This 76-nucleotide sequence from Triplophysa rosa belongs to the Rfam family "mir-193 microRNA precursor family".
Nucleotides: 076
Base pairs, nucleotide, nucleotide: 003074004073005072006071008069010067011066012065013064015062016061017060018059019058022055023054024053026051027050029048030047
Number, partner (000 for none) and nucleotide at each position: 001000u002000u003074u004073c005072a006071g007000u008069g009000g010067c011066g012065g013064g014000a015062c016061u017060u018059u019058g020000g021000a022055g023054g024053c025000a026051a027050g028000a029048u030047g031000a032000g033000u034000g035000u036000u037000g038000a039000u040000c041000a042000c043000g044000g045000u046000c047030c048029a049000a050027c051026u052000g053024g054023c055022c056000c057000g058019c059018a060017a061016a062015g063000u064013c065012c066011c067010g068000c069008u070000u071006u072005u073004g074003g075000g076000a
Source information
Lineage of the source: Eukaryota > Gnathostomata > Actinopteri > Ostariophysi > Triplophysa.